[Rfam]
RNA sequence: GGUCAGUGAUGUGAUGUAAAAGGUCUGAAUCUCAGCUCCUCCCCCUCUGCCGCCAUCUUGGCUCCCAGCAGCCCCUGCUCUCUGCUCCCAUCAUGCUCUAGUGAUGCAGUGAUGGUCUCAGGAGCUGCUGACAGACAGGAAGUGACAUCACAGAGUGAGUCUGUACAGAGAUCCUAUUGGCUCAGAGUGAUGACUGAUGUCCAACAGAACCAAUCAGCACGGAGCGUCAGGCCGAAGGGGUGGGGCUUGAGAGAUGAUCUCACUCUGCUGCUGAGACC
Numbered sequence: 001g002g003u004c005a006g007u008g009a010u011g012u013g014a015u016g017u018a019a020a021a022g023g024u025c026u027g028a029a030u031c032u033c034a035g036c037u038c039c040u041c042c043c044c045c046u047c048u049g050c051c052g053c054c055a056u057c058u059u060g061g062c063u064c065c066c067a068g069c070a071g072c073c074c075c076u077g078c079u080c081u082c083u084g085c086u087c088c089c090a091u092c093a094u095g096c097u098c099u100a101g102u103g104a105u106g107c108a109g110u111g112a113u114g115g116u117c118u119c120a121g122g123a124g125c126u127g128c129u130g131a132c133a134g135a136c137a138g139g140a141a142g143u144g145a146c147a148u149c150a151c152a153g154a155g156u157g158a159g160u161c162u163g164u165a166c167a168g169a170g171a172u173c174c175u176a177u178u179g180g181c182u183c184a185g186a187g188u189g190a191u192g193a194c195u196g197a198u199g200u201c202c203a204a205c206a207g208a209a210c211c212a213a214u215c216a217g218c219a220c221g222g223a224g225c226g227u228c229a230g231g232c233c234g235a236a237g238g239g240g241u242g243g244g245g246c247u248u249g250a251g252a253g254a255u256g257a258u259c260u261c262a263c264u265c266u267g268c269u270g271c272u273g274a275g276a277c278c
Base pairs, nucleotide, nucleotide: 001278002277003276004275034260035259037257038256044240045239046238047237048236050234062224063223064222065221066130067129068128069127070126071125072124088115089114090113091112092111093110094109096106142202144201145200146199147198148197149196156184157183158182159181160180161179163177164176165175
RNA: Small Cajal body specific RNA 6